[Rfam]
RNA: Ruegeria cis2 sRNA
RNA sequence: AUUGCGCGGGAAGUAAUUGAUGAAGGUGAAACCGCGGCACUGGUCGAUGGCGUGAAAAAGCGGGUUCCAGUCGAACAUCGAGAGCAUGAAGGGUGGCAGCGAAUUGGCGACGAACAUCUUGCCCGAGGCGAUCAUGUUGGCGCGCUG
Numbered sequence: 001a002u003u004g005c006g007c008g009g010g011a012a013g014u015a016a017u018u019g020a021u022g023a024a025g026g027u028g029a030a031a032c033c034g035c036g037g038c039a040c041u042g043g044u045c046g047a048u049g050g051c052g053u054g055a056a057a058a059a060g061c062g063g064g065u066u067c068c069a070g071u072c073g074a075a076c077a078u079c080g081a082g083a084g085c086a087u088g089a090a091g092g093g094u095g096g097c098a099g100c101g102a103a104u105u106g107g108c109g110a111c112g113a114a115c116a117u118c119u120u121g122c123c124c125g126a127g128g129c130g131a132u133c134a135u136g137u138u139g140g141c142g143c144g145c146u147g
Stems, first nucleotide, its partner, number of pairs: 002024002007019003032050003035046004059146004064076004080141001083138006094125003097121003101117001104113003
Dot-bracket structure: .((...(((.......)))...)).......(((((((....)))).)))........((((.((((.....))))...(..((((((.....((((((.(..(((....)))...).))).))).......))))))..).)))).